The family of this 181-nucleotide RNA from Huiozyma naganishii is "Small nucleolar RNA snR161". Rfam links the family to the GO terms RNA processing and nucleolus. Its Rfam clan is "SNORA44 clan". Taxonomically the source falls in Huiozyma naganishii (Eukaryota, Ascomycota, saccharomyceta, Saccharomycotina). The match comes from Rfam's covariance-model search (76 bits). The literature on the family includes a 2004 paper in Nucleic Acids Res by Schattner et al., "Genome-wide searching for pseudouridylation guide snoRNAs: analysis of the Saccharomyces cerevisiae genome". Pairs were carried over by alignment from the consensus structure, which was predicted with WAR.
Nucleotides: 181
Base pairs, nucleotide, nucleotide: 014071015070016069017068018067026057027056028055029054030053032051033050034049035048085174086173087172088171091168092167102160103159104158105157107155109153110152111151
Number, partner (000 for none) and nucleotide at each position: 001000u002000u003000a004000a005000c006000u007000u008000u009000a010000a011000a012000c013000c014071c015070c016069a017068g018067u019000a020000u021000c022000a023000u024000u025000g026057g027056c028055u029054g030053u031000u032051c033050g034049u035048a036000u037000u038000u039000u040000c041000u042000c043000c044000a045000a046000c047000a048035u049034a050033u051032g052000u053030a054029c055028a056027g057026u058000c059000u060000c061000a062000a063000a064000u065000a066000c067018a068017c069016u070015g071014g072000c073000a074000g075000a076000g077000u078000u079000a080000u081000a082000u083000g084000g085174u086173g087172a088171a089000c090000g091168a092167c093000u094000u095000a096000a097000g098000u099000u100000c101000u102160g103159c104158u105157a106000u107155g108000a109153g110152a111151u112000u113000u114000a115000g116000a117000a118000a119000a120000c121000g122000u123000u124000c125000u126000u127000c128000c129000c130000g131000u132000c133000u134000u135000c136000g137000g138000g139000a140000a141000g142000a143000a144000a145000a146000a147000u148000c149000a150000u151111g152110u153109c154000a155107c156000c157105u158104a159103g160102c161000c162000c163000u164000a165000u166000u167092g168091u169000c170000a171088u172087u173086c174085a175000u176000a177000a178000a179000u180000c181000u